[Rfam]
RNA sequence: UUUUUCAGCACUGUACCCAGGGUCUCUCUGCAGACAUUGCACCUGGAGCUGCCCCAAAUAAACCCCACUGUGUC
Numbered sequence: 001u002u003u004u005u006c007a008g009c010a011c012u013g014u015a016c017c018c019a020g021g022g023u024c025u026c027u028c029u030g031c032a033g034a035c036a037u038u039g040c041a042c043c044u045g046g047a048g049c050u051g052c053c054c055c056a057a058a059u060a061a062a063c064c065c066c067a068c069u070g071u072g073u074c
Stems, first nucleotide, its partner, number of pairs: 006051004017046004022035004
Rfam assigns this 74-nucleotide sequence from Panurus biarmicus to the family "U1A polyadenylation inhibition element (PIE)". A search with the family's covariance model found it, with a score of 51 bits. Rfam describes the family as follows. This family represents the U1A polyadenylation inhibition element (PIE). PIE is a regulatory RNA which is responsible for the regulation of the length of the polyA tail of the U1A pre-mRNA. The PIE is located in the U1A mRNA 3' UTR. PIE adopts a U-shaped structure, with binding sites for a single U1A protein at each bend and when complexed with the two proteins it blocks activity of poly(A) polymerase (PAP), and inhibits its activity.